[Rfam]
RNA sequence: GCUGAUGUAGCUCAGUUGGUAGAGCAACUGAUUCGUAAUCAGUAGGUCGACGGUUCGAUUCCGCCCAUCAGCA
Numbered sequence: 001g002c003u004g005a006u007g008u009a010g011c012u013c014a015g016u017u018g019g020u021a022g023a024g025c026a027a028c029u030g031a032u033u034c035g036u037a038a039u040c041a042g043u044a045g046g047u048c049g050a051c052g053g054u055u056c057g058a059u060u061c062c063g064c065c066c067a068u069c070a071g072c073a
Base pairs, nucleotide, nucleotide: 001072002071003070004069005068006067007066010025011024012023013022027043028042029041030040031039049065051063052062053061
RNA: tRNA
Organism: Herbaspirillum seropedicae